Record summary
Shown here is an 88-nucleotide sequence from Pseudomonas aeruginosa, a member of the family "sRNA-Xcc1". Lineage of the source: Bacteria > Pseudomonadati > Pseudomonadota > Pseudomonadaceae > Pseudomonas aeruginosa. Rfam's curators put it in the seed alignment. A reference for the family is Wengelnik et al. (1996), "HrpG, a key hrp regulatory protein of Xanthomonas campestris pv. vesicatoria is homologous to two-component response regulators", Mol Plant Microbe Interact.
RNA sequence: GGCCGGGUGGCGCGCAGCCAUACAAGACCCUUCGGGGGAAAACUGCGGGCCGUCCUAGAGCGGUGUUCAAGCGCCCGGCCGCCUCUCU
Number, nucleotide and partner (000 for none) at each position: 001g080002g079003c078004c077005g076006g075007g074008u073009g072010g000011c000012g000013c047014g046015c045016a044017g000018c000019c000020a000021u000022a000023c000024a000025a000026g000027a000028c037029c036030c035031u000032u000033c000034g000035g030036g029037g028038g000039a000040a000041a000042a000043c000044u016045g015046c014047g013048g000049g064050c063051c062052g061053u060054c000055c000056u000057a000058g000059a000060g053061c052062g051063g050064u049065g000066u000067u000068c000069a000070a000071g000072c009073g008074c007075c006076c005077g004078g003079c002080c001081g000082c000083c000084u000085c000086u000087c000088u000